[Rfam]
RNA sequence: CCUGUGGAGUGCCAUACAAACGUUAGCGUCAAUUUGGCGCAUGGUAGCCAUUCUUCGUAAGAAGAAGGCGAAAGCGGGCACGAAGAAACAGGAA
Numbered sequence: 001c002c003u004g005u006g007g008a009g010u011g012c013c014a015u016a017c018a019a020a021c022g023u024u025a026g027c028g029u030c031a032a033u034u035u036g037g038c039g040c041a042u043g044g045u046a047g048c049c050a051u052u053c054u055u056c057g058u059a060a061g062a063a064g065a066a067g068g069c070g071a072a073a074g075c076g077g078g079c080a081c082g083a084a085g086a087a088a089c090a091g092g093a094a
Base pairs, nucleotide, nucleotide: 001092002091003090004089005088009081010080011079012078013077021076022075023074028069029068030067033066034065035064

A member of the RNA family "RAGATH-18 RNA" from Halolactibacillus alkaliphilus, 94 nucleotides long. It scores 50 bits against the family's covariance model. It is annotated as a small RNA. Rfam's curators write: Actinobacteria, Firmicutes, Fusobacteria, Thermotogae (1 example).